[Rfam]
ASpks TB sRNA: a 72-nucleotide sequence from Amycolatopsis jiangsuensis.
RNA sequence: CUUCACCGAGCCGAGGUACAGCGGCUCGGCGUCACGCUCGCGGCCGUAGGUGGCCAGCAGCGCCUGCGCCUC
Numbered sequence: 001c002u003u004c005a006c007c008g009a010g011c012c013g014a015g016g017u018a019c020a021g022c023g024g025c026u027c028g029g030c031g032u033c034a035c036g037c038u039c040g041c042g043g044c045c046g047u048a049g050g051u052g053g054c055c056a057g058c059a060g061c062g063c064c065u066g067c068g069c070c071u072c
Stems, first nucleotide, its partner, number of pairs: 014026002017023001029067002035062002042055001044053003

The organism belongs to Amycolatopsis, within Bacteria.
It is annotated as an antisense RNA.